[Rfam]
RNA: MIR8565 microRNA precursor family
Organism: Amborella trichopoda
RNA sequence: CACACACCCAUGUGUGUAGGACCCGAAAGGAUCAUCAUUAAAUUUGGCACAGAUCUCUAGAAAAGUUAUCUCAUGAAUGUGAGACUUGAUUUUUCUAGAGAUUUGUACCAAAUUUAAUGGUGAUCCUUUGGGGUCUUAUACAUAUGGGUGUGGG
Numbered sequence: 001c002a003c004a005c006a007c008c009c010a011u012g013u014g015u016g017u018a019g020g021a022c023c024c025g026a027a028a029g030g031a032u033c034a035u036c037a038u039u040a041a042a043u044u045u046g047g048c049a050c051a052g053a054u055c056u057c058u059a060g061a062a063a064a065g066u067u068a069u070c071u072c073a074u075g076a077a078u079g080u081g082a083g084a085c086u087u088g089a090u091u092u093u094u095c096u097a098g099a100g101a102u103u104u105g106u107a108c109c110a111a112a113u114u115u116a117a118u119g120g121u122g123a124u125c126c127u128u129u130g131g132g133g134u135c136u137u138a139u140a141c142a143u144a145u146g147g148g149u150g151u152g153g154g
Stems, first nucleotide, its partner, number of pairs: 003152011015140010026129003030125003034121014049106020069082002072079002